[Rfam]
RNA sequence: AUAUUAUAAUCUUUAUACAUAAGACACCUCGUUAAUUUAGUUUAGUGGUAUUUAUUAAAUUAUACGAAUGACCUUAUUUUUUUUAGUAUUUCAAUGUAAAAUUACAUAUAAAAACAAAGUAUUUUGGCGAGACUCUUGAGGGAACAGGACAAGCUGAAGACUACAGGCUGAAGCUGUCCCCUAAGAAAGCGAGCCAACAAUACGAAGUAUUGUUGUAAAUAAAGAAGCCAG
Numbered sequence: 001a002u003a004u005u006a007u008a009a010u011c012u013u014u015a016u017a018c019a020u021a022a023g024a025c026a027c028c029u030c031g032u033u034a035a036u037u038u039a040g041u042u043u044a045g046u047g048g049u050a051u052u053u054a055u056u057a058a059a060u061u062a063u064a065c066g067a068a069u070g071a072c073c074u075u076a077u078u079u080u081u082u083u084u085a086g087u088a089u090u091u092c093a094a095u096g097u098a099a100a101a102u103u104a105c106a107u108a109u110a111a112a113a114a115c116a117a118a119g120u121a122u123u124u125u126g127g128c129g130a131g132a133c134u135c136u137u138g139a140g141g142g143a144a145c146a147g148g149a150c151a152a153g154c155u156g157a158a159g160a161c162u163a164c165a166g167g168c169u170g171a172a173g174c175u176g177u178c179c180c181c182u183a184a185g186a187a188a189g190c191g192a193g194c195c196a197a198c199a200a201u202a203c204g205a206a207g208u209a210u211u212g213u214u215g216u217a218a219a220u221a222a223a224g225a226a227g228c229c230a231g
Base pairs, nucleotide, nucleotide: 004218005217006216007215008214009213010212030047031046032045033044034043035042048072049071052068053067055066056062057061087209088208089207090206091205092204096105097104098103107116109114119203120202121201122200123199124197125196126195127194128193134186135185136184137183139182140181141180142179144177145176147174152169153168154167155166
Dot-bracket structure: ...(((((((...................((((((......))))))((..((.(((...))...)))..))..............((((((...(((....))).(.(....).)..((((((((((.....((((.((((.((.(....((((..........))))....).)).))))))))......))))).)))))))))))..))))))).............
Description:
S. aureus tsr24 small RNA: a 231-nucleotide RNA sequence from Staphylococcus epidermidis. It scores 98 bits against the family's covariance model. Pairs were carried over by alignment from the consensus structure, which was predicted with RNAfold. A reference for the family is Carroll et al. (2016), "Genome-wide Annotation, Identification, and Global Transcriptomic Analysis of Regulatory or Small RNA Gene Expression in Staphylococcus aureus", MBio. The family has 4 seed sequences and 98 matches in Rfam 15.1.